[Rfam]
RNA sequence: ACAUCAUGACGAGAGGUGCGAGGGAUCUGGCCCUACGACCACCCGGCAACCUGCCUGCGAGAGGCAAGGUGCUAACGCCAGCCCCGAGAGGGGAGCCCAUGAAGA
Number, nucleotide and partner (000 for none) at each position: 001a000002c104003a000004u102005c101006a100007u099008g098009a000010c000011g000012a000013g044014a000015g043016g042017u041018g040019c000020g000021a000022g033023g032024g031025a000026u000027c081028u080029g079030g078031c024032c023033c022034u000035a000036c000037g000038a000039c000040c018041a017042c016043c015044c013045g073046g072047c071048a070049a000050c069051c068052u066053g065054c064055c063056u000057g000058c000059g000060a000061g000062a000063g055064g054065c053066a052067a000068g051069g050070u048071g047072c046073u045074a000075a000076c000077g097078c030079c029080a028081g027082c093083c092084c091085c090086g000087a000088g000089a000090g085091g084092g083093g082094a000095g000096c000097c077098c008099a007100u006101g005102a004103a000104g002105a000
The record is a 105-nucleotide sequence from Desulfobaculum bizertense, which matches "SAM riboswitch aptamer (S box leader)" in Rfam. The family's consensus secondary structure is taken from published work.